[Rfam]
RNA sequence: GCCACAUGAUGUUUUCAUUUUGAAAAGUGAGAGCUUUGCGCAGUGACGACUUUUAUCAUCACCCUUGACUGAUGGCU
Dot-bracket structure: ((((..........................(.((...)).)...............................)))).

This 77-nucleotide sequence belongs to the Rfam family "Small nucleolar RNA SNORD83". It is annotated as a C/D-box small nucleolar RNA. The literature on the family includes a 2000 paper in Nucleic Acids Res by Jady and Kiss, "Characterisation of the U83 and U84 small nucleolar RNAs: two novel 2'-O-ribose methylation guide RNAs that lack complementarities to ribosomal RNAs". Rfam links the family to the GO terms nucleolus and RNA processing. The family has 7 seed sequences and 1,393 matches in Rfam 15.1.